[Rfam]
RNA sequence: CAACUGCCCAUUAUUACUUUUGGUACGCGCUGUGACGCUUCAAACUCGUACCGUGAGUAAUAAUGCGUGGCUG
Numbered sequence: 001c002a003a004c005u006g007c008c009c010a011u012u013a014u015u016a017c018u019u020u021u022g023g024u025a026c027g028c029g030c031u032g033u034g035a036c037g038c039u040u041c042a043a044a045c046u047c048g049u050a051c052c053g054u055g056a057g058u059a060a061u062a063a064u065g066c067g068u069g070g071c072u073g
Stems, first nucleotide, its partner, number of pairs: 009065010021053007029045001

Rfam assigns this 73-nucleotide sequence from Ornithorhynchus anatinus to the family "mir-126 microRNA precursor family". The family's consensus secondary structure was predicted with RNAalifold. A reference for the family is Altuvia et al. (2005), "Clustering and conservation patterns of human microRNAs", Nucleic Acids Res. Rfam 15.1 lists 1,407 matches to the family in 631 species.